[Rfam]
This 114-nucleotide RNA sequence from Phascolarctos cinereus belongs to the Rfam family "Potassium channel RNA editing signal".
A search with the family's covariance model found it, with a score of 106 bits.
The family has 85 seed sequences and 14,095 matches in Rfam 15.1.
Lineage of the source: Eukaryota > Opisthokonta > Bilateria > Teleostomi > Phascolarctos.
The literature on the family includes a 2004 paper in Nat Struct Mol Biol by Bhalla et al., "Control of human potassium channel inactivation by editing of a small mRNA hairpin".
Its family is annotated with adenosine to inosine editing in the Gene Ontology.
RNA sequence: GUGGGCUAUGGGGACAUGGCACCUGCCACAAUGGGUGGCAAGAUCGUGGGCUCCCUCUGUGCCAUUGCUGGUGUCCUCACCAUAUCCCUGCCUGUACCUGUCAUUGUCUCCAAC
Numbered sequence: 001g002u003g004g005g006c007u008a009u010g011g012g013g014a015c016a017u018g019g020c021a022c023c024u025g026c027c028a029c030a031a032u033g034g035g036u037g038g039c040a041a042g043a044u045c046g047u048g049g050g051c052u053c054c055c056u057c058u059g060u061g062c063c064a065u066u067g068c069u070g071g072u073g074u075c076c077u078c079a080c081c082a083u084a085u086c087c088c089u090g091c092c093u094g095u096a097c098c099u100g101u102c103a104u105u106g107u108c109u110c111c112a113a114c
Base pairs, nucleotide, nucleotide: 001114002113004111005110008107009106010105011104013102014101015100016099018097021095022094037077038076040074049063050062051061